RNA sequence: AAGAGCUUCGAGCCAAUAAAGACUAAGAAAAUUGGCCUGAAGUACUAA
Dot-bracket structure: ......((..(((((((.............)))))).)..))......
Plastid-rpl16 group II-D1 intron: a 48-nucleotide sequence from Apium graveolens. It scores 48 bits against the family's covariance model. From the family's description: Plastid-rpl16 is a non-coding RNA (ncRNA) recognised in plastids. It was recognised in and intronic region of a ribosome rpl16 gene. The family has 538 seed sequences and 1,446 matches in Rfam 15.1. A reference for the family is Richter et al. (2023), "Retrograde signaling in plants: A critical review focusing on the GUN pathway and beyond", Plant Commun.